[Rfam]
RNA sequence: UAGCUUUUUCUUAAGUCAAACUUUUCUAAUUUUGACAAUUUUAGAAAAUAUAUUAACAUCUACAAGUUCAAAUAAAUGCAAUACCAACUACCAAACAUAUUUCAUGGAGGAUUUAAUGAAACAAACUUGAUGUUGUAGAUGUUGAUGCAUCUUUCUGUAAACUUGGUCAAAGAUAAGUUUGACUUAGGAAAAACUAAA
Numbered sequence: 001u002a003g004c005u006u007u008u009u010c011u012u013a014a015g016u017c018a019a020a021c022u023u024u025u026c027u028a029a030u031u032u033u034g035a036c037a038a039u040u041u042u043a044g045a046a047a048a049u050a051u052a053u054u055a056a057c058a059u060c061u062a063c064a065a066g067u068u069c070a071a072a073u074a075a076a077u078g079c080a081a082u083a084c085c086a087a088c089u090a091c092c093a094a095a096c097a098u099a100u101u102u103c104a105u106g107g108a109g110g111a112u113u114u115a116a117u118g119a120a121a122c123a124a125a126c127u128u129g130a131u132g133u134u135g136u137a138g139a140u141g142u143u144g145a146u147g148c149a150u151c152u153u154u155c156u157g158u159a160a161a162c163u164u165g166g167u168c169a170a171a172g173a174u175a176a177g178u179u180u181g182a183c184u185u186a187g188g189a190a191a192a193a194c195u196a197a198a
Stems, first nucleotide, its partner, number of pairs: 005193005011187013025173002031171005042157006051147003055143010068130004073125001